[Rfam]
RNA sequence: CUCGAAAAAGGCAAACUUGUUGAAAAGCAAGGACGCAAAGCUAUAGGGCCUGAAAUGGCAGCCAGUUGCCGAAA
Numbered sequence: 001c002u003c004g005a006a007a008a009a010g011g012c013a014a015a016c017u018u019g020u021u022g023a024a025a026a027g028c029a030a031g032g033a034c035g036c037a038a039a040g041c042u043a044u045a046g047g048g049c050c051u052g053a054a055a056u057g058g059c060a061g062c063c064a065g066u067u068g069c070c071g072a073a074a
Stems, first nucleotide, its partner, number of pairs: 003071002011036002016031006034061001039067004046063002048059003
Shown here is a 74-nucleotide sequence from Anaerosacchariphilus polymeriproducens, a member of the family "c-di-GMP-I-GGC riboswitch aptamer". Gene Ontology term of the family: cyclic-di-GMP binding. Pairs were carried over by alignment from the consensus structure, which is taken from published work. A search with the family's covariance model found it, with a score of 69 bits.